RNA: Sense overlapping transcript RNA 0042 (sot)
Organism: halophilic archaeon
RNA sequence: AGAUAACCCCGAGUCCUCACGGCGAGGAUAGGAGUAACGGCUGUGUGGCACAGCCAUCGACAUACCUGUUCGACCGCGAGAGCGGAUGCUUCGCACCGCGAGAACAGGUCAUGUCGUAGACCGGCAAAUAUCCCACCCUGCGGUACGGGAAGCCCCGUCGUUCACGACGGGGA
Number, nucleotide and partner (000 for none) at each position: 001a000002g000003a000004u037005a000006a000007c034008c000009c032010c031011g000012a000013g029014u028015c027016c026017u025018c024019a000020c000021g000022g000023c000024g018025a017026g016027g015028a014029u013030a000031g010032g009033a000034g007035u000036a000037a004038c000039g055040g054041c053042u052043g051044u000045g000046u000047g000048g000049c000050a000051c043052a042053g041054c040055c039056a000057u000058c116059g115060a114061c113062a112063u111064a000065c108066c107067u106068g105069u104070u103071c102072g000073a000074c000075c000076g000077c000078g000079a000080g000081a000082g000083c000084g097085g096086a000087u095088g094089c093090u000091u000092c000093g089094c088095a087096c085097c084098g000099c000100g000101a000102g071103a070104a069105c068106a067107g066108g065109u000110c000111a063112u062113g061114u060115c059116g058117u000118a000119g000120a000121c000122c000123g000124g000125c000126a000127a000128a000129u000130a000131u150132c149133c148134c147135a000136c000137c143138c000139u000140g000141c000142g000143g137144u000145a000146c000147g134148g133149g132150a131151a000152g000153c172154c171155c170156c169157g168158u167159c166160g165161u000162u000163c000164a000165c160166g159167a158168c157169g156170g155171g154172g153173a000